[Rfam]
RNA sequence: UUAUUUAUAGUAAUGGUUCCGCGACGUCCUGUCGCAACGCCUUUGUGACCCACAUCCUGUUGG
Dot-bracket structure: ..........(((.(((...(((((.....)))))...))).)))...((.((.....)).))
Shown here is a 63-nucleotide RNA sequence from Domibacillus mangrovi, a member of the family "Bacillaceae-1 RNA".
Lineage of the source: Bacteria > Bacillota > Bacilli > Bacillaceae > Domibacillus.
The family's consensus secondary structure is taken from published work.